[Rfam]
Shown here is a 299-nucleotide RNA from Penicillium citrinum, a member of the family "A. fumigatus sRNA Afu_309". On this family, see Jochl et al., Nucleic Acids Res 2008: "Small ncRNA transcriptome analysis from Aspergillus fumigatus suggests a novel mechanism for regulation of protein synthesis". The family has 10 seed sequences and 663 matches in Rfam 15.1.

RNA sequence: CUUUUUCUACCAAGCGGAUCUGUGUCCAGCACUCCCGUUCACAGCUGUGUUACGGUUGAGAGCUGGGCAGCUCGACGAUUUACGGAGCCAUACUUUUCUUUACAUGUAUGGCACUUAACGGUGUCCUGUCGACAGGUCCCAGAUUAAUGUUCUGCGCCGGGUUACCCUCGGGUCUUGAGCUCCCCCCCUGGUGAGCUCGGCUUGAGAGCCUGGAGGCGGACGGCGUCAUAUUUCAUGUCCCUUUGCCGAUUGGCCGUUGGCUACUGAGGUUAGGGAAAAACCAUGACUUGCCAACAUAC
Numbered sequence: 001c002u003u004u005u006u007c008u009a010c011c012a013a014g015c016g017g018a019u020c021u022g023u024g025u026c027c028a029g030c031a032c033u034c035c036c037g038u039u040c041a042c043a044g045c046u047g048u049g050u051u052a053c054g055g056u057u058g059a060g061a062g063c064u065g066g067g068c069a070g071c072u073c074g075a076c077g078a079u080u081u082a083c084g085g086a087g088c089c090a091u092a093c094u095u096u097u098c099u100u101u102a103c104a105u106g107u108a109u110g111g112c113a114c115u116u117a118a119c120g121g122u123g124u125c126c127u128g129u130c131g132a133c134a135g136g137u138c139c140c141a142g143a144u145u146a147a148u149g150u151u152c153u154g155c156g157c158c159g160g161g162u163u164a165c166c167c168u169c170g171g172g173u174c175u176u177g178a179g180c181u182c183c184c185c186c187c188c189u190g191g192u193g194a195g196c197u198c199g200g201c202u203u204g205a206g207a208g209c210c211u212g213g214a215g216g217c218g219g220a221c222g223g224c225g226u227c228a229u230a231u232u233u234c235a236u237g238u239c240c241c242u243u244u245g246c247c248g249a250u251u252g253g254c255c256g257u258u259g260g261c262u263a264c265u266g267a268g269g270u271u272a273g274g275g276a277a278a279a280a281c282c283a284u285g286a287c288u289u290g291c292c293a294a295c296a297u298a299c
Base pairs, nucleotide, nucleotide: 016139017138018137019136020135021134022133023132024068025067026066027065028064029063032060033059034058035055036054037053038052040049041048042047076131077130078129079128084115085114087112088111089110090109091108151216152215157213158212159211160210161209171202172201173200174199177198178197179196180195181194182193183191184190222292223291224290225287226286227285228284229283238276239275240274241273242272245270246269247268252262253261254260255259

The family's RNA type in Rfam is small RNA. A search with the family's covariance model found it, with a score of 218 bits.